Rfam assigns this 56-nucleotide sequence from Castellaniella defragrans to the family "nhaA-I RNA". The source organism's lineage runs through Bacteria, Pseudomonadati, Pseudomonadota, Castellaniella and Castellaniella defragrans. The match comes from Rfam's covariance-model search (49 bits). The family's consensus secondary structure is taken from published work. Rfam describes the family as follows. Acidobacteria, Alphaproteobacteria, Betaproteobacteria and Gammaproteobacteria, Verrucomicrobia, cand. division NC10.
RNA sequence: GGGUGUUAGCCGCAUCGUGCGGCGGGACAGGACAACGCGCAGGUCGGGCCGCCGCG
Numbered sequence: 001g002g003g004u005g006u007u008a009g010c011c012g013c014a015u016c017g018u019g020c021g022g023c024g025g026g027a028c029a030g031g032a033c034a035a036c037g038c039g040c041a042g043g044u045c046g047g048g049c050c051g052c053c054g055c056g
Stems, first nucleotide, its partner, number of pairs: 005028003009023003038056003042053003